[Rfam]
RNA sequence: GUUUUUUACCCAAGUAUCAAGGUACUAGGUGUUUUCAAUGACCGAUCUAAAUGGUUGUGUCAUGAACCAAUAAUUUUUGGAUCAGCAUAUUCGGGGAAAUCCGGGAAUGCAA
Numbered sequence: 001g002u003u004u005u006u007u008a009c010c011c012a013a014g015u016a017u018c019a020a021g022g023u024a025c026u027a028g029g030u031g032u033u034u035u036c037a038a039u040g041a042c043c044g045a046u047c048u049a050a051a052u053g054g055u056u057g058u059g060u061c062a063u064g065a066a067c068c069a070a071u072a073a074u075u076u077u078u079g080g081a082u083c084a085g086c087a088u089a090u091u092c093g094g095g096g097a098a099a100u101c102c103g104g105g106a107a108u109g110c111a112a
Base pairs, nucleotide, nucleotide: 008032009029010028013026014025015024016023017022039062040061041060042059043057044056045055046054047053088109089108090107091106092105095102096101
Dot-bracket structure: .......(((..(((((....))))).))..)......(((((((((.....))))).)))).........................(((((..((....))..)))))...